The family of this 444-nucleotide part of an RNA from Mucilaginibacter segetis is "Bacterial large subunit ribosomal RNA". The organism belongs to Mucilaginibacter, within Bacteria. A search with the family's covariance model found it, with a score of 2725 bits.

RNA sequence: CUCCCCGAAAUGUUUUUAGGAACAGCGUGGUGGUAAAGUUAUACAGAGGUAGAGCUACUAAUUGGGUGCGGGGGAGUCAAAUCCUACCAAAUCCAGAUAAACUCCGAAUGCUGUAUAAUAUACACUGCAGUGAGGCUAUGGGUGCUAAGGUCCAUGGCCGAGAGGGAAAGAACCCAGACCAUCAGCUAAGGUCCCCAAAUUAACGCUAAGUUGAACUAACGAGGUCCGAUUGCACAGACAGCUAGGAUGUUGGCUUGGAAGCAGCCAUUCAUUUAAAGAGUGCGUAACAGCUCACUAGUCGAGCGAUCGGGCAUGGAUAAUAAACGGGCAUUAAGCGUUAUACCGAAGCUAUGGAUUUGCACGCAAGUGCAUCUGGUAGGGGAGCAUUCUACACGCGGAGAAGCAGGAGGGACGACCGACUGUGGAGGGUGUAGAAAAGCAAAU
Numbered sequence: 001c002u003c004c005c006c007g008a009a010a011u012g013u014u015u016u017u018a019g020g021a022a023c024a025g026c027g028u029g030g031u032g033g034u035a036a037a038g039u040u041a042u043a044c045a046g047a048g049g050u051a052g053a054g055c056u057a058c059u060a061a062u063u064g065g066g067u068g069c070g071g072g073g074g075a076g077u078c079a080a081a082u083c084c085u086a087c088c089a090a091a092u093c094c095a096g097a098u099a100a101a102c103u104c105c106g107a108a109u110g111c112u113g114u115a116u117a118a119u120a121u122a123c124a125c126u127g128c129a130g131u132g133a134g135g136c137u138a139u140g141g142g143u144g145c146u147a148a149g150g151u152c153c154a155u156g157g158c159c160g161a162g163a164g165g166g167a168a169a170g171a172a173c174c175c176a177g178a179c180c181a182u183c184a185g186c187u188a189a190g191g192u193c194c195c196c197a198a199a200u201u202a203a204c205g206c207u208a209a210g211u212u213g214a215a216c217u218a219a220c221g222a223g224g225u226c227c228g229a230u231u232g233c234a235c236a237g238a239c240a241g242c243u244a245g246g247a248u249g250u251u252g253g254c255u256u257g258g259a260a261g262c263a264g265c266c267a268u269u270c271a272u273u274u275a276a277a278g279a280g281u282g283c284g285u286a287a288c289a290g291c292u293c294a295c296u297a298g299u300c301g302a303g304c305g306a307u308c309g310g311g312c313a314u315g316g317a318u319a320a321u322a323a324a325c326g327g328g329c330a331u332u333a334a335g336c337g338u339u340a341u342a343c344c345g346a347a348g349c350u351a352u353g354g355a356u357u358u359g360c361a362c363g364c365a366a367g368u369g370c371a372u373c374u375g376g377u378a379g380g381g382g383a384g385c386a387u388u389c390u391a392c393a394c395g396c397g398g399a400g401a402a403g404c405a406g407g408a409g410g411g412a413c414g415a416c417c418g419a420c421u422g423u424g425g426a427g428g429g430u431g432u433a434g435a436a437a438a439g440c441a442a443a444u
Stems, first nucleotide, its partner, number of pairs: 001384006011024005026130001027128006037121001038119009052105001053103002059099002063095004070088002072085004134159010164175003179354004184350003190344003199341001201340006220315002224312010241299005247272003252266003273277001278293001282291002355374001358371005385439001387436008396427001403423004409417002